RNA sequence: AAGUGUAAUAAGGCUUUCAUGGGUGGUGGCUCGCUUUCUUUCCUUAAGUUCUUAAAGGAAGGGAGGUGGUGCCUUAUGACAGUUUUUGAGUCAUUGUUAGUAAUGCUCACUUUUGGAGCACUAAUCGUGUCCAUACUGUCACAACAAAAAAAGUAACCGCCCAGUGAGCCUAGUAAGCAUUUUGGGUCGAUUACCGUUUUGACUUGAUAUGUGAGCCGCCCCCUGAAGGGCUAUUACACGCUAGACCGUCCAUGUUCCAGCAUGGGCG
Numbered sequence: 001a002a003g004u005g006u007a008a009u010a011a012g013g014c015u016u017u018c019a020u021g022g023g024u025g026g027u028g029g030c031u032c033g034c035u036u037u038c039u040u041u042c043c044u045u046a047a048g049u050u051c052u053u054a055a056a057g058g059a060a061g062g063g064a065g066g067u068g069g070u071g072c073c074u075u076a077u078g079a080c081a082g083u084u085u086u087u088g089a090g091u092c093a094u095u096g097u098u099a100g101u102a103a104u105g106c107u108c109a110c111u112u113u114u115g116g117a118g119c120a121c122u123a124a125u126c127g128u129g130u131c132c133a134u135a136c137u138g139u140c141a142c143a144a145c146a147a148a149a150a151a152a153g154u155a156a157c158c159g160c161c162c163a164g165u166g167a168g169c170c171u172a173g174u175a176a177g178c179a180u181u182u183u184g185g186g187u188c189g190a191u192u193a194c195c196g197u198u199u200u201g202a203c204u205u206g207a208u209a210u211g212u213g214a215g216c217c218g219c220c221c222c223c224u225g226a227a228g229g230g231c232u233a234u235u236a237c238a239c240g241c242u243a244g245a246c247c248g249u250c251c252a253u254g255u256u257c258c259a260g261c262a263u264g265g266g267c268g
Stems, first nucleotide, its partner, number of pairs: 003239003007235004012217004016168004020163004025157001027155001031069003035066007078140006092105002115132003218231004247268009
Rfam assigns this 268-nucleotide RNA from Pseudogracilibacillus auburnensis to the family "BsrG". The family's RNA type in Rfam is small RNA. The source organism's lineage runs through Bacteria, Bacilli, Caryophanales, Bacillaceae and Pseudogracilibacillus. Gene Ontology terms of the family: toxin activity and autolysis. Rfam's curators write: bsrE, bsrG and bsrH pair through intermolecular interactions with antisense sRNAs.